[Rfam]
RNA sequence: GAAAGACGCGCAUUUAUCAUCAUCAUCCCUAUUAACAGAGAUGUUUAUUUGGCCACACUACGGUGUGGCCGUUU
Numbered sequence: 001g002a003a004a005g006a007c008g009c010g011c012a013u014u015u016a017u018c019a020u021c022a023u024c025a026u027c028c029c030u031a032u033u034a035a036c037a038g039a040g041a042u043g044u045u046u047a048u049u050u051g052g053c054c055a056c057a058c059u060a061c062g063g064u065g066u067g068g069c070c071g072u073u074u
Stems, first nucleotide, its partner, number of pairs: 024043004029038002051070007

This 74-nucleotide sequence from Lonsdalea quercina belongs to the Rfam family "MicA sRNA". Pairs were carried over by alignment from the consensus structure, which was predicted with WAR. By type it is a small RNA.